Rfam assigns this 205-nucleotide sequence from Lutispora thermophila to the family "raiA RNA". The organism belongs to Lutispora thermophila, within Bacteria.
RNA sequence: AUUUCCCAGGUCUGUGGUUGAAAAUCGAUGCCAGUCGCAGGCAAAACGAUCCACGUAAGCAAAGCAAAGCUUUGUGAGCAUGGUGCGGCUUAGGAGUAAGUCCGUCCAGGUUAUACCUGAGAGGAGCUGUAGUGAGGGGCUUAAUAGCUUGAGCGAAACUUCCAGACGGCGAGUGUGGGGGCAAAGACCAGGUCAGCUGUGGAAA
Numbered sequence: 001a002u003u004u005c006c007c008a009g010g011u012c013u014g015u016g017g018u019u020g021a022a023a024a025u026c027g028a029u030g031c032c033a034g035u036c037g038c039a040g041g042c043a044a045a046a047c048g049a050u051c052c053a054c055g056u057a058a059g060c061a062a063a064g065c066a067a068a069g070c071u072u073u074g075u076g077a078g079c080a081u082g083g084u085g086c087g088g089c090u091u092a093g094g095a096g097u098a099a100g101u102c103c104g105u106c107c108a109g110g111u112u113a114u115a116c117c118u119g120a121g122a123g124g125a126g127c128u129g130u131a132g133u134g135a136g137g138g139g140c141u142u143a144a145u146a147g148c149u150u151g152a153g154c155g156a157a158a159c160u161u162c163c164a165g166a167c168g169g170c171g172a173g174u175g176u177g178g179g180g181g182c183a184a185a186g187a188c189c190a191g192g193u194c195a196g197c198u199g200u201g202g203a204a205a
Stems, first nucleotide, its partner, number of pairs: 002204004007199003012196003015190005028176003031041001033090007050083002058075001061072001063071002081183001102169005107119005123162004132154002139148003